Record summary
This 103-nucleotide RNA sequence from Shouchella clausii belongs to the Rfam family "SAM riboswitch aptamer (S box leader)". Lineage of the source: Bacteria > Bacillati > Bacilli > Caryophanales > Shouchella clausii.
[Rfam]
RNA sequence: UUCUUAUCCAGAGAGAUGGAGGGAUUUGGCCCUUUGAAGUCUCAGCAACCGGCCUUUGGCAAUGGUGCUAAUUCCAAUAGGUAAUGUACCUAGGAGAUAAGAA
Numbered sequence: 001u002u003c004u005u006a007u008c009c010a011g012a013g014a015g016a017u018g019g020a021g022g023g024a025u026u027u028g029g030c031c032c033u034u035u036g037a038a039g040u041c042u043c044a045g046c047a048a049c050c051g052g053c054c055u056u057u058g059g060c061a062a063u064g065g066u067g068c069u070a071a072u073u074c075c076a077a078u079a080g081g082u083a084a085u086g087u088a089c090c091u092a093g094g095a096g097a098u099a100a101g102a103a
Base pairs, nucleotide, nucleotide: 001103002102003101004100005099006098007097008096013043014042015041016040017039021032022031023030026077027076028075029074044069045068046067047066049065050064052060053059054058073095078092079091080090081089